[Rfam]
RNA: c-di-GMP-I riboswitch aptamer
Organism: Rossellomorea aquimaris
RNA sequence: GUACGAUAACGGCAAAAUCAUUGAAAAAUGAUGACGCAAAACUAUAGGGGCUACUGUCACUGACAAAGCCAGCCAGUUUCCGAA
Numbered sequence: 001g002u003a004c005g006a007u008a009a010c011g012g013c014a015a016a017a018u019c020a021u022u023g024a025a026a027a028a029u030g031a032u033g034a035c036g037c038a039a040a041a042c043u044a045u046a047g048g049g050g051c052u053a054c055u056g057u058c059a060c061u062g063a064c065a066a067a068g069c070c071a072g073c074c075a076g077u078u079u080c081c082g083a084a
Base pairs, nucleotide, nucleotide: 012037013036017032018031019030020029021028022027040078041077042076043075047074048073049070050069051068056064057063058062